[Rfam]
RNA sequence: ACCUACACUGAGUGGCCAGAUUAUUAUGCUAUCUGAAAGCAUAAUAAUCUGGCCACUCAGUAUAUUA
Numbered sequence: 001a002c003c004u005a006c007a008c009u010g011a012g013u014g015g016c017c018a019g020a021u022u023a024u025u026a027u028g029c030u031a032u033c034u035g036a037a038a039g040c041a042u043a044a045u046a047a048u049c050u051g052g053c054c055a056c057u058c059a060g061u062a063u064a065u066u067a
Stems, first nucleotide, its partner, number of pairs: 004064002007061011019049010
RNA: mir-9256 microRNA precursor family